[Rfam]
RNA: drum RNA
Nucleotides: 112
Stems, first nucleotide, its partner, number of pairs: 002047003011041004017035005024079002027076001062107001064105001083095004
Number, partner (000 for none) and nucleotide at each position: 001000a002047g003046g004045u005000g006000a007000u008000g009000a010000a011041g012040c013039g014038g015000c016000a017035g018034g019033c020032u021031g022000g023000u024079u025078c026000a027076g028000c029000a030000u031021c032020a033019g034018u035017c036000g037000u038014u039013u040012g041011u042000g043000g044000a045004g046003c047002c048000a049000g050000g051000c052000u053000a054000u055000g056000g057000g058000u059000u060000g061000u062107g063000c064105g065000a066000a067000u068000a069000c070000c071000a072000c073000a074000a075000g076027c077000c078025g079024a080000a081000u082000a083095g084094a085093u086092u087000c088000a089000g090000c091000g092086a093085g094084u095083c096000g097000a098000a099000a100000g101000a102000a103000a104000a105064c106000a107062c108000a109000a110000a111000g112000u